This 114-nucleotide RNA from Laodelphax striatellus belongs to the Rfam family "Group II catalytic intron D1-D4-2". A search with the family's covariance model found it, with a score of 92 bits. Group II introns are found in rRNA, tRNA and mRNA of organelles in fungi, plants and protists, and also in mRNA in bacteria. The organism belongs to Laodelphax, within Eukaryota. For this family Rfam cites "The ins and outs of group II introns" (Bonen and Vogel, Trends Genet, 2001).
RNA sequence: GGGGGUGGGCCCCUCGGAGCCGGCUUACAAGAGCAGGCUUCAAACAACCAUAAGCUGCUUUGGUAAAAAGCUAAGGUAGUGAGCGUUAUAAAAAAGGCACAAAUAUGCGUCAUG
Numbered sequence: 001g002g003g004g005g006u007g008g009g010c011c012c013c014u015c016g017g018a019g020c021c022g023g024c025u026u027a028c029a030a031g032a033g034c035a036g037g038c039u040u041c042a043a044a045c046a047a048c049c050a051u052a053a054g055c056u057g058c059u060u061u062g063g064u065a066a067a068a069a070g071c072u073a074a075g076g077u078a079g080u081g082a083g084c085g086u087u088a089u090a091a092a093a094a095a096g097g098c099a100c101a102a103a104u105a106u107g108c109g110u111c112a113u114g
Stems, first nucleotide, its partner, number of pairs: 001015005016041006023034004045114002050089004054080002057077003061073004096111003100107002